[Rfam]
RNA: Glycine riboswitch aptamer
Organism: Croceicoccus mobilis
RNA sequence: UAGCGAUGCUCUGGAAAGAGCCGUGGCGGGUUUGUCCCGCAGGCCACCGAAGGGGUAUCCUCGCACCGCGCCCUCACGCGGUUCUCGGGGGAAGCUCUCAGGUUUCCGCGACAGAGGGGGCUUG
Numbered sequence: 001u002a003g004c005g006a007u008g009c010u011c012u013g014g015a016a017a018g019a020g021c022c023g024u025g026g027c028g029g030g031u032u033u034g035u036c037c038c039g040c041a042g043g044c045c046a047c048c049g050a051a052g053g054g055g056u057a058u059c060c061u062c063g064c065a066c067c068g069c070g071c072c073c074u075c076a077c078g079c080g081g082u083u084c085u086c087g088g089g090g091g092a093a094g095c096u097c098u099c100a101g102g103u104u105u106c107c108g109c110g111a112c113a114g115a116g117g118g119g120g121c122u123u124g
Stems, first nucleotide, its partner, number of pairs: 007118001009116005020044003046103003049099002053097003059090005